The record is an 81-nucleotide RNA, which matches "skipping-rope RNA" in Rfam.

[Rfam]
RNA sequence: AGGAAUUGAAGUGGAGAUAAGUGCUACCACGCACCUUAUAGGUCAAAAGAAAUGCAGGAAGGGGCACACCUGCCAAUAGCC
Numbered sequence: 001a002g003g004a005a006u007u008g009a010a011g012u013g014g015a016g017a018u019a020a021g022u023g024c025u026a027c028c029a030c031g032c033a034c035c036u037u038a039u040a041g042g043u044c045a046a047a048a049g050a051a052a053u054g055c056a057g058g059a060a061g062g063g064g065c066a067c068a069c070c071u072g073c074c075a076a077u078a079g080c081c
Base pairs, nucleotide, nucleotide: 002080005077006076007075008074011030012029013028014027021067022066023065024064025063032049033043034042035041036040054073055072056071057070058069

It is one of the family's seed sequences.